[Rfam]
RNA sequence: CGGGUGGAUCACGAUGCAAUUUUGAUUAGUAUAAUAGGAGAAAAAUUGCACGGUAUCCAUCUGUA
Dot-bracket structure: (((((((((.((..(((((((((..................)))))))))..)))))))))))..
Description
mir-363 microRNA precursor family: a 65-nucleotide RNA sequence from Tupaia belangeri. The organism belongs to Tupaia belangeri, within Eukaryota.